Record summary
The family of this 69-nucleotide RNA sequence from Folsomia candida is "mir-8/mir-141/mir-200 microRNA precursor family". Its Rfam clan is "mir-8 microRNA precursor clan". Taxonomically the source falls in Folsomia (Eukaryota, Metazoa, Ecdysozoa, Isotomoidea). It scores 56 bits against the family's covariance model. A reference for the family is Lagos-Quintana et al. (2001), "Identification of novel genes coding for small expressed RNAs", Science. The family's consensus secondary structure was predicted with RNAalifold.
RNA sequence: UGGGUCAUCUUACCAGGCAGCAUUAGAGUCUAUUUAAUAAUCUAAUACUGUCAGGUAAAAGAUGGUCUU
Numbered sequence: 001u002g003g004g005u006c007a008u009c010u011u012a013c014c015a016g017g018c019a020g021c022a023u024u025a026g027a028g029u030c031u032a033u034u035u036a037a038u039a040a041u042c043u044a045a046u047a048c049u050g051u052c053a054g055g056u057a058a059a060a061g062a063u064g065g066u067c068u069u
Stems, first nucleotide, its partner, number of pairs: 002068008010058005016052005022046006